[Rfam]
RNA sequence: AAAACUUAGGUACAAUUCUUUAGGUGUUUUUCGUAUGGUUUUUAACUAAAAAUAUAUCUUUUUACGAUACAAUAAACUUUGAGAAAAUUAUGGAUUUGAGAAAAUCAUACUAAAUUUAAUUAAGAACUAUACGAAAAGCACCUAAGAAAUUGUACCUAAGUUUU
Numbered sequence: 001a002a003a004a005c006u007u008a009g010g011u012a013c014a015a016u017u018c019u020u021u022a023g024g025u026g027u028u029u030u031u032c033g034u035a036u037g038g039u040u041u042u043u044a045a046c047u048a049a050a051a052a053u054a055u056a057u058c059u060u061u062u063u064a065c066g067a068u069a070c071a072a073u074a075a076a077c078u079u080u081g082a083g084a085a086a087a088u089u090a091u092g093g094a095u096u097u098g099a100g101a102a103a104a105u106c107a108u109a110c111u112a113a114a115u116u117u118a119a120u121u122a123a124g125a126a127c128u129a130u131a132c133g134a135a136a137a138g139c140a141c142c143u144a145a146g147a148a149a150u151u152g153u154a155c156c157u158a159a160g161u162u163u164u
Stems, first nucleotide, its partner, number of pairs: 002163007010155004015150003019146007027138017045120001047118004

This 164-nucleotide RNA from Medicago truncatula belongs to the Rfam family "MIR2606 microRNA precursor family".
The organism belongs to Medicago, within Eukaryota.
Rfam links the family to the GO terms RISC complex and miRNA-mediated post-transcriptional gene silencing.
Rfam 15.1 lists 227 matches to the family in 3 species.